[Rfam]
RNA: Glycine riboswitch aptamer
RNA sequence: ACCGCUCUGGAAAGCGAUCCCGCAGUGGGGGAUCCGCCGACGGUGAAAGCCGGUUCCGCGCAGGCGGGCCCGGCGAAACUCUCAGGCCGAUGACAGAGGGGGAGUU
Numbered sequence: 001a002c003c004g005c006u007c008u009g010g011a012a013a014g015c016g017a018u019c020c021c022g023c024a025g026u027g028g029g030g031g032a033u034c035c036g037c038c039g040a041c042g043g044u045g046a047a048a049g050c051c052g053g054u055u056c057c058g059c060g061c062a063g064g065c066g067g068g069c070c071c072g073g074c075g076a077a078a079c080u081c082u083c084a085g086g087c088c089g090a091u092g093a094c095a096g097a098g099g100g101g102g103a104g105u106u
Base pairs, nucleotide, nucleotide: 002101003100005098006097007096008095009094016034017033018032019031036087037086038085039083040082043081045079049074050073051072052071053070